[Rfam]
RNA sequence: UUGCCUUAAACUAAUGAGUAAGGAAAACAACGCGGGAGGUGAGAGCCGACCGCUGAGCGCUGAGUGGUGCUGAAUUAACCUAGUUAGUUCAGUUACCGCGCCAUUUAAUUUUUGGAGGGGUGAAAGGCUGGCCAGACGCUGACGCUGCUUACUUUGCAGAACUCGCCUGUGCCGGCCUCCCUU
Numbered sequence: 001u002u003g004c005c006u007u008a009a010a011c012u013a014a015u016g017a018g019u020a021a022g023g024a025a026a027a028c029a030a031c032g033c034g035g036g037a038g039g040u041g042a043g044a045g046c047c048g049a050c051c052g053c054u055g056a057g058c059g060c061u062g063a064g065u066g067g068u069g070c071u072g073a074a075u076u077a078a079c080c081u082a083g084u085u086a087g088u089u090c091a092g093u094u095a096c097c098g099c100g101c102c103a104u105u106u107a108a109u110u111u112u113u114g115g116a117g118g119g120g121u122g123a124a125a126g127g128c129u130g131g132c133c134a135g136a137c138g139c140u141g142a143c144g145c146u147g148c149u150u151a152c153u154u155u156g157c158a159g160a161a162c163u164c165g166c167c168u169g170u171g172c173c174g175g176c177c178u179c180c181c182u183u
Base pairs, nucleotide, nucleotide: 004023005022006021007020008019032053033052034051035050038047039046054103055102117183118182119181120180125178126177127176128175129174130173131172133169134168137165138164145159146158147157148156
RNA: U12 minor spliceosomal RNA